[Rfam]
Nucleotides: 139
Base pairs, nucleotide, nucleotide: 012037013036017032018031019030020029021028022027040133041132042131043130045129046128047127048124050122055118056117058115
Number, partner (000 for none) and nucleotide at each position: 001000u002000u003000u004000g005000g006000a007000a008000a009000a010000a011000g012037c013036c014000a015000a016000a017032c018031c019030a020029u021028c022027u023000g024000c025000g026000a027022g028021g029020a030019u031018g032017g033000g034000a035000c036013g037012g038000a039000a040133a041132g042131c043130u044000a045129c046128g047127g048124g049000a050122c051000u052000u053000g054000a055118g056117a057000u058115u059000g060000a061000a062000g063000g064000u065000u066000g067000a068000a069000a070000a071000u072000a073000g074000a075000g076000g077000a078000u079000u080000g081000a082000a083000a084000a085000u086000u087000u088000u089000u090000c091000a092000u093000u094000u095000c096000a097000u098000a099000c100000u101000c102000a103000a104000u105000u106000c107000a108000a109000u110000c111000g112000u113000c114000a115058a116000u117056u118055c119000c120000a121000a122050g123000c124048u125000a126000g127047c128046c129045g130043g131042g132041u133040u134000g135000c136000c137000c138000a139000g
The family of this 139-nucleotide RNA sequence from Candidatus Vecturithrix granuli is "c-di-GMP-I riboswitch aptamer". Gene Ontology term of the family: cyclic-di-GMP binding. Pairs were carried over by alignment from the consensus structure, which is taken from published work. The source organism's lineage runs through Bacteria, Candidatus Vecturitrichia, Candidatus Vecturitrichales, Candidatus Vecturitrichaceae and Candidatus Vecturithrix.